[Rfam]
Background:
The record is an 84-nucleotide sequence from Dorea longicatena, which matches "ZMP/ZTP riboswitch aptamer (pfl RNA motif)" in Rfam. It is one of the family's seed sequences. Lineage of the source: Bacteria > Bacillota > Lachnospirales > Lachnospiraceae > Dorea longicatena.
RNA sequence: AGAAGAUCUGAUGACUGACGGAUAAUGUGGAGUACCACAGGGGAAUCAGAUACUUGGUAAGAGCCGACCGUCUGGGCAGCAUUU
Numbered sequence: 001a002g003a004a005g006a007u008c009u010g011a012u013g014a015c016u017g018a019c020g021g022a023u024a025a026u027g028u029g030g031a032g033u034a035c036c037a038c039a040g041g042g043g044a045a046u047c048a049g050a051u052a053c054u055u056g057g058u059a060a061g062a063g064c065c066g067a068c069c070g071u072c073u074g075g076g077c078a079g080c081a082u083u084u
Stems, first nucleotide, its partner, number of pairs: 003054001006051007015042002017072005027038004063077003